[Rfam]
RNA: Group II catalytic intron D1-D4-2
RNA sequence: GAGGGUAGAUCCAUCGGAAUCGGCUUACAGGAGUAGGUUUCAAACCACCAAAAAAUGCUGUGGUAAAGAGCCAUGGUGGCGAGCGUUUUGGAAAAGGUUAUAGCAUGACUAUAAUCAGGU
Numbered sequence: 001g002a003g004g005g006u007a008g009a010u011c012c013a014u015c016g017g018a019a020u021c022g023g024c025u026u027a028c029a030g031g032a033g034u035a036g037g038u039u040u041c042a043a044a045c046c047a048c049c050a051a052a053a054a055a056u057g058c059u060g061u062g063g064u065a066a067a068g069a070g071c072c073a074u075g076g077u078g079g080c081g082a083g084c085g086u087u088u089u090g091g092a093a094a095a096g097g098u099u100a101u102a103g104c105a106u107g108a109c110u111a112u113a114a115u116c117a118g119g120u
Base pairs, nucleotide, nucleotide: 001015002014004012005011016041017040018039019038020037021036023034024033025032026031046119048091049090050089051088052087053086057077058076059075061073062072063071064070096116097115098114099113100112101111